Shown here is a 159-nucleotide RNA from Brucella rhizosphaerae, a member of the family "6S / SsrS RNA". The match comes from Rfam's covariance-model search (76 bits). The literature on the family includes a 2000 paper in Cell by Wassarman and Storz, "6S RNA regulates E. coli RNA polymerase activity". NCBI's taxonomy places the organism under Bacteria, Pseudomonadati, Alphaproteobacteria, Hyphomicrobiales, Brucella.
RNA sequence: GGCGUACUGCGCUUCCCGACAGGUGUUACAGCAUCCCCGGGGCCUUAUUGAUCUCUAAGGGAGCUGUCCCUGUGAAGGCCUGUGGGCUUUCGCAUAUGGCACCCACCUACGUUGUAGGUUCCCGGGAUCAAUCACAACCAUCGGUCGUCGUGGUCGCCA
Numbered sequence: 001g002g003c004g005u006a007c008u009g010c011g012c013u014u015c016c017c018g019a020c021a022g023g024u025g026u027u028a029c030a031g032c033a034u035c036c037c038c039g040g041g042g043c044c045u046u047a048u049u050g051a052u053c054u055c056u057a058a059g060g061g062a063g064c065u066g067u068c069c070c071u072g073u074g075a076a077g078g079c080c081u082g083u084g085g086g087c088u089u090u091c092g093c094a095u096a097u098g099g100c101a102c103c104c105a106c107c108u109a110c111g112u113u114g115u116a117g118g119u120u121c122c123c124g125g126g127a128u129c130a131a132u133c134a135c136a137a138c139c140a141u142c143g144g145u146c147g148u149c150g151u152g153g154u155c156g157c158c159a
Base pairs, nucleotide, nucleotide: 002157003156004155006154007153008152009151010150011149012147015144017143018142019141034127035126036125037124039122040121041120042119043118044117059104060103061102063100064099065098066097067096072093073092074091075090076089077088078087079086080085